[Rfam]
RNA sequence: UUUUUUCAUAAAGCGCCAGAACUUGGGCUUUGUACGGAGAAAGAAUUCGACCAUUGCAUUGGCGGAUUCGCGAAGCGCCAAGUUGACGAGGUGAAGGUGUUCGAAUGAUUCGGCGGGGACCUUCCGGUGAUUCACCAAAGCCGUUAAACCGAAAACGGAAAAUGAAUGGGCGACCGUUCACACAACGCUUCCGGUGGGUGAAAGA
Numbered sequence: 001u002u003u004u005u006u007c008a009u010a011a012a013g014c015g016c017c018a019g020a021a022c023u024u025g026g027g028c029u030u031u032g033u034a035c036g037g038a039g040a041a042a043g044a045a046u047u048c049g050a051c052c053a054u055u056g057c058a059u060u061g062g063c064g065g066a067u068u069c070g071c072g073a074a075g076c077g078c079c080a081a082g083u084u085g086a087c088g089a090g091g092u093g094a095a096g097g098u099g100u101u102c103g104a105a106u107g108a109u110u111c112g113g114c115g116g117g118g119a120c121c122u123u124c125c126g127g128u129g130a131u132u133c134a135c136c137a138a139a140g141c142c143g144u145u146a147a148a149c150c151g152a153a154a155a156c157g158g159a160a161a162a163u164g165a166a167u168g169g170g171c172g173a174c175c176g177u178u179c180a181c182a183c184a185a186c187g188c189u190u191c192c193g194g195u196g197g198g199u200g201a202a203a204g205a
Stems, first nucleotide, its partner, number of pairs: 020084007029075003093124005101113004125143004148195004153190002163180007
The family of this 205-nucleotide sequence from Paenibacillus albilobatus is "glmS glucosamine-6-phosphate activated ribozyme aptamer". It scores 76 bits against the family's covariance model. It is annotated as a riboswitch. Taxonomically the source falls in Paenibacillus (Bacteria, Bacillota, Caryophanales, Paenibacillaceae). Gene Ontology terms of the family: regulation of gene expression and catalytic activity. About the family: This entry contains a glucosamine-6-phosphate activated ribozyme that is found in the mRNA for GlmS. GlmS is an enzyme that uses fructose-6-phosphate and glutamine to generate glucosamine-6-phosphate. The ribozyme catalyses self cleavage of the glmS mRNA that is thought to regulate GlmS activity.